A member of the RNA family "Small nucleolar RNA Z157/R69/R10" from Corchorus capsularis, 99 nucleotides long. The family's RNA type in Rfam is C/D-box small nucleolar RNA. It scores 88 bits against the family's covariance model. The family is grouped with related families in Rfam's "SNORD52 clan". The base pairs follow the family's consensus structure, which was predicted with PFOLD. Taxonomically the source falls in Corchorus (Eukaryota, Spermatophyta, rosids, Malvaceae). On this family, see Chen et al., Nucleic Acids Res 2003: "The high diversity of snoRNAs in plants: identification and comparative study of 120 snoRNA genes from Oryza sativa". Rfam 15.1 lists 836 matches to the family in 232 species. Rfam links the family to the GO terms nucleolus and RNA processing.

RNA sequence: AAGAGUGCGGUGAUGAAGCAAUUAUUUGUGGACUAGAGUUUCUGACUCUGGGUUUCACCCAGAAGUUGAAGACUAACCCUUGGCUGUCUGAGUAUUCUU
Numbered sequence: 001a002a003g004a005g006u007g008c009g010g011u012g013a014u015g016a017a018g019c020a021a022u023u024a025u026u027u028g029u030g031g032a033c034u035a036g037a038g039u040u041u042c043u044g045a046c047u048c049u050g051g052g053u054u055u056c057a058c059c060c061a062g063a064a065g066u067u068g069a070a071g072a073c074u075a076a077c078c079c080u081u082g083g084c085u086g087u088c089u090g091a092g093u094a095u096u097c098u099u
Base pairs, nucleotide, nucleotide: 001099002098003097004096005095006094007093008092039071040070041069042068047063048062049061050060051059